[Rfam]
RNA: R2 RNA element
Organism: Agrilus planipennis
RNA sequence: UUAUAUUAAAUAAACUACCUACAGAACGCUUUUGUCAACAUUGCUCAAAAGCAUUACAGGAUGAAGUCAACGAAUGAAGUAGAGCGGUUUUAGUCGGUAGAUCCGAGGACUUCUUCCUCGGGAAUCCGACACUACCCAGUCGUACGGACGUCUGGGUGUCUUUUUAAGAUUUCCCCUCUUCC
Numbered sequence: 001u002u003a004u005a006u007u008a009a010a011u012a013a014a015c016u017a018c019c020u021a022c023a024g025a026a027c028g029c030u031u032u033u034g035u036c037a038a039c040a041u042u043g044c045u046c047a048a049a050a051g052c053a054u055u056a057c058a059g060g061a062u063g064a065a066g067u068c069a070a071c072g073a074a075u076g077a078a079g080u081a082g083a084g085c086g087g088u089u090u091u092a093g094u095c096g097g098u099a100g101a102u103c104c105g106a107g108g109a110c111u112u113c114u115u116c117c118u119c120g121g122g123a124a125u126c127c128g129a130c131a132c133u134a135c136c137c138a139g140u141c142g143u144a145c146g147g148a149c150g151u152c153u154g155g156g157u158g159u160c161u162u163u164u165u166a167a168g169a170u171u172u173c174c175c176c177u178c179u180u181c182c
Stems, first nucleotide, its partner, number of pairs: 031051003063181002081179004086174002093130005102122008132158001134157005